[Rfam]
RNA sequence: ACCGCUAAGCCAUCUCUCCAGCCCAAUAAAUUUUUUUUUUUUUUUAAAAAGAAAUUCCCGGGCUGGAGAGAUGGCUUAGCGGU
Numbered sequence: 001a002c003c004g005c006u007a008a009g010c011c012a013u014c015u016c017u018c019c020a021g022c023c024c025a026a027u028a029a030a031u032u033u034u035u036u037u038u039u040u041u042u043u044u045u046a047a048a049a050a051g052a053a054a055u056u057c058c059c060g061g062g063c064u065g066g067a068g069a070g071a072u073g074g075c076u077u078a079g080c081g082g083u
Stems, first nucleotide, its partner, number of pairs: 002082023
A member of the RNA family "mir-3473 microRNA precursor family" from Jaculus jaculus, 83 nucleotides long. Lineage of the source: Eukaryota > Chordata > Vertebrata > Amniota > Jaculus. Rfam 15.1 lists 1,094 matches to the family in 20 species.